RNA: mir-3 microRNA precursor family
RNA sequence: UUUAUGGGAUAUACUAAGUUCAGUUUUGUCGAAUAUGCAAGCAUCACUGGGCUUUGUUUAUCUCAUAAG
Numbered sequence: 001u002u003u004a005u006g007g008g009a010u011a012u013a014c015u016a017a018g019u020u021c022a023g024u025u026u027u028g029u030c031g032a033a034u035a036u037g038c039a040a041g042c043a044u045c046a047c048u049g050g051g052c053u054u055u056g057u058u059u060a061u062c063u064c065a066u067a068a069g
Stems, first nucleotide, its partner, number of pairs: 005065007013057002017053003021049004